[Rfam]
RNA sequence: CAAACACAUAUUACGACUGUUCGUAUAUCCUCGAUAAUACGGUUCGGGGGUCUCUACAAGGAACCACAAAUUCCUGGCUACGAACGGGUUGCCUUUGAUG
Numbered sequence: 001c002a003a004a005c006a007c008a009u010a011u012u013a014c015g016a017c018u019g020u021u022c023g024u025a026u027a028u029c030c031u032c033g034a035u036a037a038u039a040c041g042g043u044u045c046g047g048g049g050g051u052c053u054c055u056a057c058a059a060g061g062a063a064c065c066a067c068a069a070a071u072u073c074c075u076g077g078c079u080a081c082g083a084a085c086g087g088g089u090u091g092c093c094u095u096u097g098a099u100g
Stems, first nucleotide, its partner, number of pairs: 018086008029049006059075005
Source information:
Rfam assigns this 100-nucleotide RNA from Paenibacillus methanolicus to the family "Purine riboswitch aptamer". The family's consensus secondary structure is taken from published work. Taxonomically the source falls in Paenibacillus (Bacteria, Bacillati, Bacillota, Bacilli).